Small nucleolar RNA SNORA49: a 139-nucleotide RNA sequence from Albula goreensis. By type it is an H/ACA-box small nucleolar RNA. Rfam links the family to the GO terms nucleolus and RNA processing. A search with the family's covariance model found it, with a score of 36 bits.

RNA sequence: GUUCCCCUUCCUUACUCCAGGACCUGACCACCACAGUUCAGGCACCUGGUAUUGACAGGUGUUACAGAAACCAUUCUGUCUCCCCACUCUCACGUUCAGUUGUACUGCUGUCUGUGGGGCCUGGAAGGGGGCUGACAUC
Numbered sequence: 001g002u003u004c005c006c007c008u009u010c011c012u013u014a015c016u017c018c019a020g021g022a023c024c025u026g027a028c029c030a031c032c033a034c035a036g037u038u039c040a041g042g043c044a045c046c047u048g049g050u051a052u053u054g055a056c057a058g059g060u061g062u063u064a065c066a067g068a069a070a071c072c073a074u075u076c077u078g079u080c081u082c083c084c085c086a087c088u089c090u091c092a093c094g095u096u097c098a099g100u101u102g103u104a105c106u107g108c109u110g111u112c113u114g115u116g117g118g119g120c121c122u123g124g125a126a127g128g129g130g131g132c133u134g135a136c137a138u139c
Stems, first nucleotide, its partner, number of pairs: 004061001006059003011054001017049005023042005070133001072131001074129001082119006

Record summary:
The family's consensus secondary structure was predicted with RNAalifold. The snoRNA ACA49 has no identified RNA target. NB genomic sequence 1-nt different from published.